[Rfam]
Rfam assigns this 65-nucleotide sequence from Otolemur garnettii to the family "U7 small nuclear RNA".
It scores 36 bits against the family's covariance model.
From the family's description: Animal histone pre-mRNAs are spliced by a different mechanism than nuclear pre-mRNAs and self-splicing introns. This processing involves the U7 snRNP, which contains only one RNA species: U7. The 5' end of U7 RNA is thought to base-pair to a conserved spacer element downstream of the cleavage site in histone pre-mRNA. This family contains a number of annotated U7 pseudogenes.
On this family, see Spycher et al., Nucleic Acids Res 1994: "3' end processing of mouse histone pre-mRNA: evidence for additional base-pairing between U7 snRNA and pre-mRNA".

RNA sequence: UAGAACUUACAGCUCUUUUAGAAUUUACCUAGCAAGCCUUCUGGUUCUACCACUGAGAGACCACC
Number, nucleotide and partner (000 for none) at each position: 001u000002a000003g000004a000005a000006c000007u000008u000009a000010c000011a000012g000013c000014u000015c000016u000017u000018u000019u000020a000021g000022a000023a000024u000025u000026u000027a000028c000029c000030u000031a000032g000033c000034a000035a000036g061037c000038c059039u058040u057041c000042u055043g054044g053045u052046u000047c000048u000049a000050c000051c000052a045053c044054u043055g042056a000057g040058a039059g038060a000061c036062c000063a000064c000065c000